[Rfam]
RNA sequence: AGUGGCUAUCCCUCCACUUAAAUCGAAGGGU
Numbered sequence: 001a002g003u004g005g006c007u008a009u010c011c012c013u014c015c016a017c018u019u020a021a022a023u024c025g026a027a028g029g030g031u
Stems, first nucleotide, its partner, number of pairs: 001018004010030004014025001

Record summary: Pseudoknot of upstream pseudoknot domain (UPD) of the 3'UTR: a 31-nucleotide RNA from Tobamovirus odontoglossi. The family's RNA type in Rfam is cis-regulatory element. The sequence is in the family's curated seed alignment. NCBI's taxonomy places the organism under Viruses, Riboviria, Alsuviricetes, Virgaviridae, Tobamovirus odontoglossi.